RNA sequence: GUCUUGUCAGUGAUGUCUUUAAACACAAAUGUCUGAACAUAUGAUUUUCAGUGAUUCAUUUUUCUGUGCUGAGACAAGAC
Numbered sequence: 001g002u003c004u005u006g007u008c009a010g011u012g013a014u015g016u017c018u019u020u021a022a023a024c025a026c027a028a029a030u031g032u033c034u035g036a037a038c039a040u041a042u043g044a045u046u047u048u049c050a051g052u053g054a055u056u057c058a059u060u061u062u063u064c065u066g067u068g069c070u071g072a073g074a075c076a077a078g079a080c
Base pairs, nucleotide, nucleotide: 002079003078004077005076006075007074008073
This 80-nucleotide sequence from Sparus aurata belongs to the Rfam family "Small nucleolar RNA SNORD72".
The organism belongs to Sparus, within Eukaryota.
The match comes from Rfam's covariance-model search (55 bits).
The literature on the family includes a 2001 paper in EMBO J by Huttenhofer et al., "RNomics: an experimental approach that identifies 201 candidates for novel, small, non-messenger RNAs in mouse".
The pairing is the family consensus, mapped onto this sequence.
It is annotated as a C/D-box small nucleolar RNA.
snoRNA HBII-240 belongs to the CD family of snoRNAs. It is the human orthologue of the mouse MBII-240 and is predicted to guide 2'O-ribose methylation of the large 28S rRNA at residue U4590.
The family has 16 seed sequences and 726 matches in Rfam 15.1.
Rfam links the family to the GO terms nucleolus and RNA processing.